RNA: TPP riboswitch aptamer (THI element)
RNA sequence: UAUUUAACAUAGGGGAGCCUCUGGCUGAGAUAAAGCAUCUGCUUUGACCCUUAAAACCUGAUCUAGAUAAUACUAGCGAAGGGAAGUGUGAAUUAGUAUUUA
Numbered sequence: 001u002a003u004u005u006a007a008c009a010u011a012g013g014g015g016a017g018c019c020u021c022u023g024g025c026u027g028a029g030a031u032a033a034a035g036c037a038u039c040u041g042c043u044u045u046g047a048c049c050c051u052u053a054a055a056a057c058c059u060g061a062u063c064u065a066g067a068u069a070a071u072a073c074u075a076g077c078g079a080a081g082g083g084a085a086g087u088g089u090g091a092a093u094u095a096g097u098a099u100u101u102a
Stems, first nucleotide, its partner, number of pairs: 007089004011051004017025003032045005057082003063076004
Dot-bracket structure: ......((((((((..(((...)))......(((((....)))))..)))).....(((...((((......))))...)))...)))).............